[Rfam]
RNA sequence: AUUAACGUGAUAUUACACUUAAUUACGCGAAUACCAAUGAGUCUGCAGGUGAAUUUAUCUAUUAUCUCUACAUGGCAUGGACUCAGUUGAUUCCAUAUCCUCCAACUUAACCGAAGCUGUGAAAGCAGAUUCGUUGUUCUACGCAAUGAUCACCCCAAUCAUUGCGUAUUUUUUUAUCUAAAAUUCAUA
Numbered sequence: 001a002u003u004a005a006c007g008u009g010a011u012a013u014u015a016c017a018c019u020u021a022a023u024u025a026c027g028c029g030a031a032u033a034c035c036a037a038u039g040a041g042u043c044u045g046c047a048g049g050u051g052a053a054u055u056u057a058u059c060u061a062u063u064a065u066c067u068c069u070a071c072a073u074g075g076c077a078u079g080g081a082c083u084c085a086g087u088u089g090a091u092u093c094c095a096u097a098u099c100c101u102c103c104a105a106c107u108u109a110a111c112c113g114a115a116g117c118u119g120u121g122a123a124a125g126c127a128g129a130u131u132c133g134u135u136g137u138u139c140u141a142c143g144c145a146a147u148g149a150u151c152a153c154c155c156c157a158a159u160c161a162u163u164g165c166g167u168a169u170u171u172u173u174u175u176a177u178c179u180a181a182a183a184u185u186c187a188u189a
Stems, first nucleotide, its partner, number of pairs: 013052004018048002022044001026039002065189001067187001070179001072177002074094002077091001080088002112133004117128004141167010
Dot-bracket structure: ............((((.((..(...((..........))....)..))))))............(.(..(.((((.(..((.....))..).)).................((((.((((....)))).)))).......((((((((((.......))))))))))........)).).......).)

Aar sRNA: a 189-nucleotide sequence from Acinetobacter rudis.
The family's RNA type in Rfam is small RNA.
Rfam links the family to the GO term regulation of cellular amino acid metabolic process.
NCBI's taxonomy places the organism under Bacteria, Pseudomonadati, Gammaproteobacteria, Acinetobacter, Acinetobacter rudis.